[Rfam]
RNA: Trypanosomatid mitochondrial small subunit ribosomal RNA
Nucleotides: 618
Stems, first nucleotide, its partner, number of pairs: 015582001017580002036082001038080003042076002046070002051065001053063001055061001100406006107397005112388006119381006129371001131369001134365002138361005145354006158344005165337005170331001183290002186287001195277002198274002201271001212260002217255002220251006229245004234241002307330002310327002313325001315323001426532003431527001433525001435523003442516001446511002453483002457479005488509004493504001495502001539550004551578003556572007587608009
Number, partner (000 for none) and nucleotide at each position: 001000a002000u003000a004000u005000a006000u007000u008000a009000a010000a011000g012000u013000c014000a015582a016000a017580u018579g019000u020000u021000a022000u023000u024000c025000u026000u027000c028000a029000u030000a031000u032000u033000a034000a035000u036082u037000u038080u039079u040078u041000u042076g043075a044000a045000u046070g047069u048000u049000u050000u051065u052000a053063a054000a055061u056000u057000u058000u059000a060000u061055a062000a063053u064000a065051g066000u067000u068000g069047a070046u071000u072000g073000u074000a075043u076042u077000u078040a079039a080038a081000u082036a083000u084000u085000u086000a087000a088000a089000u090000c091000a092000a093000a094000u095000u096000u097000u098000a099000g100406g101405a102404a103403u104402a105401g106000u107397u108396a109395a110394u111393a112388u113387u114386a115385a116384u117383u118000u119381a120380u121379a122378a123377u124376u125000u126000u127000g128000a129371u130000u131369a132000g133000a134365u135364u136000a137000u138361u139360u140359u141358g142357u143000u144000u145354a146353u147352g148351c149350u150349a151000u152000a153000a154000a155000a156000g157000a158344g159343g160342u161341g162340u163000g164000g165337a166336a167335a168334a169333a170331g171000u172000g173000a174000a175000a176000a177000a178000u179000a180000a181000a182000a183290a184289a185000a186287a187000u188000a189000a190000a191000a192000a193000a194000u195277a196276a197000a198274a199273a200000a201271u202000a203000a204000a205000c206000u207000u208000a209000a210000c211000c212260u213259a214000u215000c216000u217255g218254u219000c220251a221250g222249a223248a224247a225246u226000g227000g228000a229245u230244g231243c232242c233000a234241g235240c236000c237000g238000u239000u240235g241234c242232g243231g244230u245229a246225a247224u248223u249222u250221c251220u252000a253000u254218g255217c256000u257000u258000u259213u260212a261000a262000a263000u264000a265000u266000u267000a268000u269000a270000c271201a272000g273199u274198u275000a276196u277195u278000u279000u280000a281000u282000u283000g284000u285000u286000u287186u288000g289184u290183u291000a292000a293000u294000u295000a296000c297000u298000a299000u300000u301000u302000u303000c304000a305000u306000c307330a308329a309000a310327a311326a312000a313325a314000a315323u316000u317000u318000a319000u320000a321000a322000u323315a324000c325313u326311u327310u328000a329308u330307u331170u332000g333169u334168u335167u336166u337165u338000a339000a340162a341161c342160a343159c344158c345000u346000u347000u348000u349150u350149g351148g352147u353146a354145u355000a356000u357142g358141c359140a360139a361138a362000u363000a364135g365134a366000a367000a368000a369131u370000u371129a372000c373000a374000g375000u376124a377123a378122u379121u380120a381119u382000u383117a384116a385115u386114u387113a388112a389000a390000u391000u392000a393111u394110a395109u396108u397107a398000u399000a400000u401105u402104u403103a404102u405101u406100c407000a408000c409000a410000u411000a412000a413000u414000u415000a416000u417000a418000a419000a420000u421000u422000u423000a424000g425000a426532a427531u428530u429000a430000u431527u432000a433525u434000a435523u436522u437521u438000u439000g440000a441000c442516a443000c444000c445000a446511u447510g448000a449000u450000a451000a452000g453483g454482a455000c456000a457479a458478u459477g460476a461475a462000u463000g464000g465000a466000a467000u468000u469000g470000u471000a472000a473000a474000u475461u476460u477459u478458a479457u480000a481000a482454u483453c484000a485000a486000a487000a488509u489508u490507a491506a492000u493504u494000a495502a496000u497000u498000a499000u500000a501000u502495u503000a504493a505000u506491u507490u508489a509488g510447u511446a512000a513000a514000u515000u516442u517000a518000g519000a520000u521437a522436a523435a524000a525433a526000a527431a528000u529000a530428a531427a532426u533000u534000c535000a536000a537000a538000a539550g540549g541548u542547a543000u544000u545000g546000u547542u548541g549540c550539c551578c552577a553576c554000c555000a556572a557571u558570u559569u560568u561567u562566a563000u564000a565000a566562u567561a568560a569559a570558a571557a572556u573000a574000a575000c576553g577552u578551g579018c580017a581000g582015u583000a584000a585000u586000u587608a588607a589606u590605a591604u592603a593602u594601u595600u596000a597000u598000a599000a600595a601594g602593a603592u604591a605590u606589a607588u608587u609000u610000u611000u612000u613000c614000a615000u616000a617000u618000u